A member of the RNA family "THF (Tetrahydrofolate) riboswitch aptamer" from Pseudoselenomonas ruminis, 99 nucleotides long. The family has 101 seed sequences and 747 matches in Rfam 15.1. Its family is annotated with tetrahydrofolate metabolic process in the Gene Ontology. For this family Rfam cites "A eubacterial riboswitch class that senses the coenzyme tetrahydrofolate" (Ames et al., Chem Biol, 2010).
RNA sequence: AACAGAGUAAGCGAAUGUGCGUUAAGUGCCAGAUGGACGGGGAGUUGCCAUCCGGACGAAAAGUUUUUACUUGCGGUACAUUGGCUGCAUCCCGCUGUU
Numbered sequence: 001a002a003c004a005g006a007g008u009a010a011g012c013g014a015a016u017g018u019g020c021g022u023u024a025a026g027u028g029c030c031a032g033a034u035g036g037a038c039g040g041g042g043a044g045u046u047g048c049c050a051u052c053c054g055g056a057c058g059a060a061a062a063g064u065u066u067u068u069a070c071u072u073g074c075g076g077u078a079c080a081u082u083g084g085c086u087g088c089a090u091c092c093c094g095c096u097g098u099u
Stems, first nucleotide, its partner, number of pairs: 001099005010086003014082006020075003026057002029055002032052005040092003044088001061072004